[Rfam]
RNA: Small nucleolar RNA SNORD101
RNA sequence: GUUUGAAUGAUGACUUGAUUGUCGGAUACCCCUACACUCCAUUUAUGAGUGAUAAAAAAUGGUCUGACAAAC
Numbered sequence: 001g002u003u004u005g006a007a008u009g010a011u012g013a014c015u016u017g018a019u020u021g022u023c024g025g026a027u028a029c030c031c032c033u034a035c036a037c038u039c040c041a042u043u044u045a046u047g048a049g050u051g052a053u054a055a056a057a058a059a060u061g062g063u064c065u066g067a068c069a070a071a072c
Stems, first nucleotide, its partner, number of pairs: 001072005